RNA sequence: UUAGGGAUUAACGGAAUCGCUGUAUUUUACAGAGGAAAGUCCGGACUCCGUCGGACACGAUGCCGGCUAACGGCCGGGAAACGGGAAAGACCUUAAUAGGUUUUUCCCGUUUACGGAUAGUGCAACAGAAAAUAUACCGCCUUACAAACUCCGUUUGUAAGGUAAGGGUGAAAAGGCGGGGUAAGAGCCCGCCGCGCAAGAUAGGUAACUAUUGCGGCAGUGUAAACCCCAUCGGGAGCAAGGUUAAGCAGUAAAGAAUGUCCGAUUCUUAAUUUACGGGUUAACCGCACUGAAUUUCCGCCGCAAGACGGAAAUAAGAAAGAUGAUUCCGCCGUUUUUACGGAACAGAAUCCGGCUUAUUAAUCCCUUUUUUU
Numbered sequence: 001u002u003a004g005g006g007a008u009u010a011a012c013g014g015a016a017u018c019g020c021u022g023u024a025u026u027u028u029a030c031a032g033a034g035g036a037a038a039g040u041c042c043g044g045a046c047u048c049c050g051u052c053g054g055a056c057a058c059g060a061u062g063c064c065g066g067c068u069a070a071c072g073g074c075c076g077g078g079a080a081a082c083g084g085g086a087a088a089g090a091c092c093u094u095a096a097u098a099g100g101u102u103u104u105u106c107c108c109g110u111u112u113a114c115g116g117a118u119a120g121u122g123c124a125a126c127a128g129a130a131a132a133u134a135u136a137c138c139g140c141c142u143u144a145c146a147a148a149c150u151c152c153g154u155u156u157g158u159a160a161g162g163u164a165a166g167g168g169u170g171a172a173a174a175g176g177c178g179g180g181g182u183a184a185g186a187g188c189c190c191g192c193c194g195c196g197c198a199a200g201a202u203a204g205g206u207a208a209c210u211a212u213u214g215c216g217g218c219a220g221u222g223u224a225a226a227c228c229c230c231a232u233c234g235g236g237a238g239c240a241a242g243g244u245u246a247a248g249c250a251g252u253a254a255a256g257a258a259u260g261u262c263c264g265a266u267u268c269u270u271a272a273u274u275u276a277c278g279g280g281u282u283a284a285c286c287g288c289a290c291u292g293a294a295u296u297u298c299c300g301c302c303g304c305a306a307g308a309c310g311g312a313a314a315u316a317a318g319a320a321a322g323a324u325g326a327u328u329c330c331g332c333c334g335u336u337u338u339u340a341c342g343g344a345a346c347a348g349a350a351u352c353c354g355g356c357u358u359a360u361u362a363a364u365c366c367c368u369u370u371u372u373u374u
Stems, first nucleotide, its partner, number of pairs: 003368009012331007020032005037358003041355005046238004054263001058234005063077005078114001079112015115229002120227002122223003137167002139163009175193006194218001195216005202211003242286004251277004255269005295314006302307001
The family of this 374-nucleotide RNA sequence from Treponema pedis is "Bacterial RNase P class A". A reference for the family is Beauregard et al. (2013), "Identification and characterization of small RNAs in Yersinia pestis", RNA Biol. A search with the family's covariance model found it, with a score of 255 bits. Lineage of the source: Bacteria > Pseudomonadati > Spirochaetota > Spirochaetia > Treponema pedis. Rfam's curators write: Ribonuclease P (RNase P) is a ubiquitous endoribonuclease, found in archaea, bacteria and eukarya as well as chloroplasts and mitochondria. It is annotated as a ribozyme.